This 168-nucleotide sequence from Firmicutes bacterium CAG:95 belongs to the Rfam family "Clostridiales-1 RNA".
[Rfam]
RNA sequence: UGAUGCCAGGGUCAAAAGGUCUAAAAACACAUGAGCUUGCUCAUAGGUGGUUGAAAGACCUUGGGACCCGCUCCGAUAUGAGCAUAAAAGUGGGAUGCUAAUUCCACGAUAUUCGAAUAUUAAAUAGGAUUGUGGGAGUGCAAAGCACGGAACAAUCCGUAGGCAUCA
Numbered sequence: 001u002g003a004u005g006c007c008a009g010g011g012u013c014a015a016a017a018g019g020u021c022u023a024a025a026a027a028c029a030c031a032u033g034a035g036c037u038u039g040c041u042c043a044u045a046g047g048u049g050g051u052u053g054a055a056a057g058a059c060c061u062u063g064g065g066a067c068c069c070g071c072u073c074c075g076a077u078a079u080g081a082g083c084a085u086a087a088a089a090g091u092g093g094g095a096u097g098c099u100a101a102u103u104c105c106a107c108g109a110u111a112u113u114c115g116a117a118u119a120u121u122a123a124a125u126a127g128g129a130u131u132g133u134g135g136g137a138g139u140g141c142a143a144a145g146c147a148c149g150g151a152a153c154a155a156u157c158c159g160u161a162g163g164c165a166u167c168a
Base pairs, nucleotide, nucleotide: 001168002167003166004165005164006163007162010068011067012066013065016062017061018060019059020058021057022056026051028049029048030047031044032043033042034041035040072124075121076120077119078118079117082114084112085111090107091106092105093104094103095102096101127158128157129156130155131154132153133152138148139147140146141145

Rfam 15.1 lists 1,172 matches to the family in 137 species. A search with the family's covariance model found it, with a score of 135 bits.